RNA sequence: UUUGUCGUGAGGCAGGUACCGAAGGAAGCGAGACUGCAAAUCCCGUUUCCAAAGAACAGAAUCAAGCGAAGCGUAUCAUGAACACCUUUAUAAAAUAAACACAACAGUGAAUAAACUGGAUACUGAGGCUGCAUGAGUCGGAUGAGGUAGCACAUCAUACUGACGUCCAAAAGUGGUUAUCCACUCAGCACCUAUGCAGUAGAUCCGGUGGAUAUUGGGAGAAGGAAUAUGCC
Number, nucleotide and partner (000 for none) at each position: 001u016002u015003u014004g013005u012006c011007g000008u000009g000010a000011g006012g005013c004014a003015g002016g001017u000018a000019c000020c000021g000022a000023a000024g000025g000026a000027a000028g233029c000030g000031a230032g000033a000034c000035u000036g000037c225038a000039a000040a000041u220042c219043c218044c217045g216046u000047u000048u212049c211050c210051a209052a000053a000054g000055a000056a000057c000058a000059g000060a000061a000062u000063c000064a000065a000066g000067c000068g000069a000070a000071g000072c000073g000074u000075a000076u000077c000078a000079u000080g000081a000082a000083c000084a000085c000086c000087u000088u000089u000090a000091u000092a000093a000094a000095a000096u000097a000098a000099a000100c000101a000102c000103a000104a000105c000106a000107g000108u000109g000110a000111a000112u000113a000114a000115a000116c208117u207118g206119g205120a204121u203122a000123c000124u000125g000126a000127g000128g200129c199130u198131g000132c196133a195134u194135g193136a000137g191138u190139c000140g168141g167142a166143u165144g000145a000146g161147g160148u159149a158150g000151c000152a000153c000154a000155u000156c000157a000158u149159a148160c147161u146162g000163a000164c000165g143166u142167c141168c140169a000170a000171a000172a000173g000174u000175g000176g000177u000178u000179a000180u000181c000182c000183a000184c000185u000186c000187a000188g000189c000190a138191c137192c000193u135194a134195u133196g132197c000198a130199g129200u128201a000202g000203a121204u120205c119206c118207g117208g116209u051210g050211g049212a048213u000214a000215u000216u045217g044218g043219g042220a041221g000222a000223a000224g000225g037226a000227a000228u000229a000230u031231g000232c000233c028
RNA: Group II catalytic intron D1-D4-3